[Rfam]
RNA: bZIP non canonical Hac1/Xbp1 intron
Organism: Septoria linicola
RNA sequence: UGCCGCUCGACCUGACACAACAUUCUGCAGCAAUGUUGUGCUAUGACCUGCCGUGUCGGUCCAGCCGCA
Numbered sequence: 001u002g003c004c005g006c007u008c009g010a011c012c013u014g015a016c017a018c019a020a021c022a023u024u025c026u027g028c029a030g031c032a033a034u035g036u037u038g039u040g041c042u043a044u045g046a047c048c049u050g051c052c053g054u055g056u057c058g059g060u061c062c063a064g065c066c067g068c069a
Base pairs, nucleotide, nucleotide: 001069002068003067005065006064007063009061010060011059012058019037020036021035022034023033024032045057046056047055